Fungal signal recognition particle RNA: a 266-nucleotide sequence from Pyrenochaeta sp. DS3sAY3a.

[Rfam]
RNA sequence: UACCUGUAAUGGGUCUUCAUCAGAAGGUUUUCCGUCAUCCCCAUACACCUCCCUGUCGCCACCUCAGCAGGAGCCCAGUUCGAGUCUCGUGGUGUCCACUUUUCACUCACUCGGGUAACCAGUGAUGCUGGAUGGACCUAAGCAAUGAAUGCAAUCUUGACGAGGGAAGAAAUUCUGCAGUCGGGCAUUCACCACGGGACGGCGGCGCUGGAUUACUCCCGUUGCGGUUGGGGGGCGUGUGGCGGGCUGGGAUAUCAACUGGUAUU
Numbered sequence: 001u002a003c004c005u006g007u008a009a010u011g012g013g014u015c016u017u018c019a020u021c022a023g024a025a026g027g028u029u030u031u032c033c034g035u036c037a038u039c040c041c042c043a044u045a046c047a048c049c050u051c052c053c054u055g056u057c058g059c060c061a062c063c064u065c066a067g068c069a070g071g072a073g074c075c076c077a078g079u080u081c082g083a084g085u086c087u088c089g090u091g092g093u094g095u096c097c098a099c100u101u102u103u104c105a106c107u108c109a110c111u112c113g114g115g116u117a118a119c120c121a122g123u124g125a126u127g128c129u130g131g132a133u134g135g136a137c138c139u140a141a142g143c144a145a146u147g148a149a150u151g152c153a154a155u156c157u158u159g160a161c162g163a164g165g166g167a168a169g170a171a172a173u174u175c176u177g178c179a180g181u182c183g184g185g186c187a188u189u190c191a192c193c194a195c196g197g198g199a200c201g202g203c204g205g206c207g208c209u210g211g212a213u214u215a216c217u218c219c220c221g222u223u224g225c226g227g228u229u230g231g232g233g234g235g236c237g238u239g240u241g242g243c244g245g246g247c248u249g250g251g252a253u254a255u256c257a258a259c260u261g262g263u264a265u266u
Base pairs, nucleotide, nucleotide: 002014003013004012019263020262021261022260023259028254030252031251032250033249034248038246039245040244041242042241043240044239045238046237048235049234050233051232052231053230061228062227063226065224066223067222068221070219071218072217073216075211076210077209078208079207080205081204082203084200085199086198087197088196089195090194091193092192094137096135097134098133100132101131102130104127105126107125108124109123110122111121113120114119138142146191147190148189149188150187151186152185157184158183159182160181161180166175167174168173
Rfam 15.1 lists 748 matches to the family in 741 species. The family's consensus secondary structure is taken from published work.